[Rfam]
A member of the RNA family "Acido-Lenti-1 RNA", 46 nucleotides long. It is annotated as a small RNA. The family's consensus secondary structure is taken from published work. Rfam 15.1 lists 2,607 matches to the family in 171 species.
RNA sequence: CCCAGCAGUGAACUGCUGGGCUACUAUCAGAUGUCCCUUCGGGACA
Numbered sequence: 001c002c003c004a005g006c007a008g009u010g011a012a013c014u015g016c017u018g019g020g021c022u023a024c025u026a027u028c029a030g031a032u033g034u035c036c037c038u039u040c041g042g043g044a045c046a
Base pairs, nucleotide, nucleotide: 001020002019003018004017005016006015007014008013033045034044035043036042037041